Rfam assigns this 60-nucleotide RNA from Brenneria rubrifaciens to the family "Fluoride riboswitch aptamer (crcB RNA motif)". The base pairs follow the family's consensus structure, which is taken from published work. NCBI's taxonomy places the organism under Bacteria, Pseudomonadati, Pseudomonadota, Pectobacteriaceae, Brenneria. Rfam 15.1 lists 2,293 matches to the family in 1,982 species. It scores 40 bits against the family's covariance model.
[Rfam]
RNA sequence: UUGCCAAACGGAGAUGAAAUUCCUCCAUCACCGCCUUCGGCUGACGAUGUCUACGUAUUA
Numbered sequence: 001u002u003g004c005c006a007a008a009c010g011g012a013g014a015u016g017a018a019a020u021u022c023c024u025c026c027a028u029c030a031c032c033g034c035c036u037u038c039g040g041c042u043g044a045c046g047a048u049g050u051c052u053a054c055g056u057a058u059u060a
Base pairs, nucleotide, nucleotide: 010026011025012024013023016051017050019048020047021046033041034040035039